Record summary
Rfam assigns this 266-nucleotide sequence from Desulfosporosinus metallidurans to the family "Bacterial large signal recognition particle RNA". The family's RNA type in Rfam is non-coding RNA gene. Rfam links the family to the GO terms SRP-dependent cotranslational protein targeting to membrane, signal sequence recognition and signal recognition particle, plasma membrane targeting. The signal recognition particle (SRP) is a universally conserved ribonucleoprotein involved in the co-translational targeting of proteins to membranes.
RNA sequence: CCGUACUAGACGGGGAGGUAGCGGUUCCCUGUAACUUGCAGUCCGCUCUAGCAAGGUGGAAUUCCCACGAUAGGUCCUCGUCUGUGAAGCCGUCUUUGGUAGGCGGCGAUGAGAUUUUGGUCUUACGCAACAGGACACUCCGAACCGUGUCAGAUCUUGACGGAAGCAGCACUAAGGAGAGCGUUUUGUGUGCCGUAAGGUUGCCUGAAUCGAGUUUGCUAACCAAGGUAACGUUCGGAGGCGAUGGUUCAAUCAAGGGUGUACGG
Numbered sequence: 001c002c003g004u005a006c007u008a009g010a011c012g013g014g015g016a017g018g019u020a021g022c023g024g025u026u027c028c029c030u031g032u033a034a035c036u037u038g039c040a041g042u043c044c045g046c047u048c049u050a051g052c053a054a055g056g057u058g059g060a061a062u063u064c065c066c067a068c069g070a071u072a073g074g075u076c077c078u079c080g081u082c083u084g085u086g087a088a089g090c091c092g093u094c095u096u097u098g099g100u101a102g103g104c105g106g107c108g109a110u111g112a113g114a115u116u117u118u119g120g121u122c123u124u125a126c127g128c129a130a131c132a133g134g135a136c137a138c139u140c141c142g143a144a145c146c147g148u149g150u151c152a153g154a155u156c157u158u159g160a161c162g163g164a165a166g167c168a169g170c171a172c173u174a175a176g177g178a179g180a181g182c183g184u185u186u187u188g189u190g191u192g193c194c195g196u197a198a199g200g201u202u203g204c205c206u207g208a209a210u211c212g213a214g215u216u217u218g219c220u221a222a223c224c225a226a227g228g229u230a231a232c233g234u235u236c237g238g239a240g241g242c243g244a245u246g247g248u249u250c251a252a253u254c255a256a257g258g259g260u261g262u263a264c265g266g
Base pairs, nucleotide, nucleotide: 001266002265003264004263005262006261010057011056012030013029014028015027016026017025019023035055036054037053038052039051064259065258066257069254070253073250074249076247077246079243080242081241082240083239085237086236087235088234092232093231095227096226097225098224099223100222103219104218105216106215107214113211114210115209116208117207119205120204121203122199123198124197125196126195127194128190129189131188132187133186134185135184136181138179139178140177141176147172148171149170150169155164156163157162
Overview:
The base pairs follow the family's consensus structure, which is taken from published work.